[Rfam]
RNA sequence: AGUACCUUUAACUCAGUCCCGUGAGGCUGGCAAGGUCGUCGGAUACAAGGCAUUCCAAGCUUAUUCAGCUGUGGGAUAGCCGUUUAUGUAGCAUGAGCGAAUGUAGAGCUCCUUGUCAACGAUGACAGGGAGCUCUUUGUU
Number, nucleotide and partner (000 for none) at each position: 001a000002g000003u000004a036005c035006c034007u033008u032009u000010a000011a000012c000013u030014c029015a028016g027017u026018c025019c000020c000021g000022u000023g000024a000025g018026g017027c016028u015029g014030g013031c000032a008033a007034g006035g005036u004037c000038g000039u000040c000041g000042g000043a000044u000045a000046c000047a000048a000049g080050g000051c000052a077053u076054u075055c074056c073057a072058a000059g070060c000061u068062u067063a000064u000065u000066c000067a062068g061069c000070u059071g000072u057073g056074g055075g054076a053077u052078a000079g000080c049081c000082g000083u000084u000085u000086a000087u000088g000089u000090a000091g000092c000093a000094u000095g000096a000097g000098c000099g000100a000101a000102u000103g000104u000105a136106g135107a134108g133109c132110u131111c130112c129113u128114u127115g126116u125117c124118a123119a000120c000121g000122a000123u118124g117125a116126c115127a114128g113129g112130g111131a110132g109133c108134u107135c106136u105137u000138u000139g000140u000141u000
RNA: PyrR binding site